The family of this 117-nucleotide RNA from Pontibacillus marinus is "SAM riboswitch aptamer (S box leader)". It scores 92 bits against the family's covariance model. The SAM riboswitch is found upstream of a number of genes which code for proteins involved in methionine or cysteine biosynthesis in Gram-positive bacteria. NCBI's taxonomy places the organism under Bacteria, Bacillota, Bacillaceae, Pontibacillus, Pontibacillus marinus.
RNA sequence: UUCUUAUCAAGAGUGGCUGAGGGAUUAGGCCCUACGACGCCCGGCAACCAUUCAAACAGAAACGGUUUGAAUAAGGUGCCAAUUCCUACAGGUCUUUAAUGAUCUGAGAGAUAAGGA
Numbered sequence: 001u002u003c004u005u006a007u008c009a010a011g012a013g014u015g016g017c018u019g020a021g022g023g024a025u026u027a028g029g030c031c032c033u034a035c036g037a038c039g040c041c042c043g044g045c046a047a048c049c050a051u052u053c054a055a056a057c058a059g060a061a062a063c064g065g066u067u068u069g070a071a072u073a074a075g076g077u078g079c080c081a082a083u084u085c086c087u088a089c090a091g092g093u094c095u096u097u098a099a100u101g102a103u104c105u106g107a108g109a110g111a112u113a114a115g116g117a
Stems, first nucleotide, its partner, number of pairs: 001117008013042001015041003021032003026088004043080004048076002050072008084109001089106006
Dot-bracket structure: ((((((((....(.(((...(((..[[[[)))......))))((((.((((((((((.......))))))))..))))))...(]]]]((((((......))))))..)))))))))